[Rfam]
RNA sequence: GCUGCCUUAUGACAGGAAGGACUGAAAUGUGUCAAAGACCUGUGGUCUUUCCUUGAUGAUCCUGCAGC
Numbered sequence: 001g002c003u004g005c006c007u008u009a010u011g012a013c014a015g016g017a018a019g020g021a022c023u024g025a026a027a028u029g030u031g032u033c034a035a036a037g038a039c040c041u042g043u044g045g046u047c048u049u050u051c052c053u054u055g056a057u058g059a060u061c062c063u064g065c066a067g068c
Base pairs, nucleotide, nucleotide: 001068002067003066004065005064014053015052016051017050018049019048020047021046022045023044029039030038